RNA sequence: GUGACAGAAGAGAGUGAGCACACGUGGUUGCUUCCCUGCAUGCAUUAUUCCCCAUGCUUGGAGCUACGCGUGCUCACUUCUCUUCUUGUCAC
Numbered sequence: 001g002u003g004a005c006a007g008a009a010g011a012g013a014g015u016g017a018g019c020a021c022a023c024g025u026g027g028u029u030g031c032u033u034c035c036c037u038g039c040a041u042g043c044a045u046u047a048u049u050c051c052c053c054a055u056g057c058u059u060g061g062a063g064c065u066a067c068g069c070g071u072g073c074u075c076a077c078u079u080c081u082c083u084u085c086u087u088g089u090c091a092c
Stems, first nucleotide, its partner, number of pairs: 001092007009084001010082003013078009023068003
A member of the RNA family "mir-156 microRNA precursor family" from Digitaria exilis, 92 nucleotides long.
Rfam describes the family as follows. This family represents the plant microRNA (miRNA) precursor mir-156.
It scores 80 bits against the family's covariance model.
Taxonomically the source falls in Digitaria (Eukaryota, Streptophyta, Liliopsida, commelinids).
The literature on the family includes a 2001 paper in Cell by Ambros, "microRNAs: tiny regulators with great potential".
Pairs were carried over by alignment from the consensus structure, which was predicted with PFOLD.
The family has 10 seed sequences and 1,401 matches in Rfam 15.1.